[Rfam]
RNA sequence: CGAGGCCGCGCGGGAGAGUCCUCGCCAGGUUUCGGUGAGGCGCCGAAGGGGCAAACUCCCCGCCAAGCUCUCAGGCGCCAGGACCGUGCGGAUCAG
Numbered sequence: 001c002g003a004g005g006c007c008g009c010g011c012g013g014g015a016g017a018g019u020c021c022u023c024g025c026c027a028g029g030u031u032u033c034g035g036u037g038a039g040g041c042g043c044c045g046a047a048g049g050g051g052c053a054a055a056c057u058c059c060c061c062g063c064c065a066a067g068c069u070c071u072c073a074g075g076c077g078c079c080a081g082g083a084c085c086g087u088g089c090g091g092a093u094c095a096g
Stems, first nucleotide, its partner, number of pairs: 006091008020040007042076003045072002049070003056062001